[Rfam]
RNA sequence: ACCGAUCUUCAGGGCAGGGUGAAAUUCCCGACCGGCGGUGACAGUCCGCGAGUUGGUCCGAUGUUCGGAACAACAGGAUGCAGUGGAAUUCUGCGACCGACAGUAUAGUCUGGAUGAGAGAAGAUUGUG
Numbered sequence: 001a002c003c004g005a006u007c008u009u010c011a012g013g014g015c016a017g018g019g020u021g022a023a024a025u026u027c028c029c030g031a032c033c034g035g036c037g038g039u040g041a042c043a044g045u046c047c048g049c050g051a052g053u054u055g056g057u058c059c060g061a062u063g064u065u066c067g068g069a070a071c072a073a074c075a076g077g078a079u080g081c082a083g084u085g086g087a088a089u090u091c092u093g094c095g096a097c098c099g100a101c102a103g104u105a106u107a108g109u110c111u112g113g114a115u116g117a118g119a120g121a122a123g124a125u126u127g128u129g
Stems, first nucleotide, its partner, number of pairs: 003127008017029003031109002033099002035049004044097002052074003079095005101112003
Dot-bracket structure: ..((((((((......(((.......))).[[((((((.....[[))))..(((.................)))....(((((.......)))))]])).(((....]]))).......))))))))..
RNA: FMN riboswitch aptamer (RFN element)